[Rfam]
RNA sequence: CAGCGGGCCACCUCUCCCCAACGAGAGGCGAGCUAUCUGAGAGGAUAGAACUG
Numbered sequence: 001c002a003g004c005g006g007g008c009c010a011c012c013u014c015u016c017c018c019c020a021a022c023g024a025g026a027g028g029c030g031a032g033c034u035a036u037c038u039g040a041g042a043g044g045a046u047a048g049a050a051c052u053g
Base pairs, nucleotide, nucleotide: 011028012027013026014025015024016023033048034047035046036045037044038043

About this RNA:
serC leader: a 53-nucleotide RNA from Aerobium aerolatum. A search with the family's covariance model found it, with a score of 66 bits. About the family: This family is a putative regulatory RNA structure that is found upstream of the serC-serA operon in some alpha-proteobacteria. The final stem of the structure overlaps the ribosome binding site of the serC reading frame.